[Rfam]
RNA sequence: ACCACUGAGCCACCUUCCCAGCCCCUACAUAUCUUUUAAAAAUGUAAUUUAAAAAUCACAUCAGAGGGGCUGGGAAGGUGGCUCAGUGGU
Dot-bracket structure: .(((((((((((((((((((((((((......................................))))))))))))))))))))))))).
The record is a 90-nucleotide RNA sequence from Dipodomys ordii, which matches "mir-3473 microRNA precursor family" in Rfam.
It scores 76 bits against the family's covariance model.
Gene Ontology terms of the family: miRNA-mediated post-transcriptional gene silencing, RISC complex and cellular response to mechanical stimulus.
NCBI's taxonomy places the organism under Eukaryota, Euarchontoglires, Glires, Heteromyidae, Dipodomys.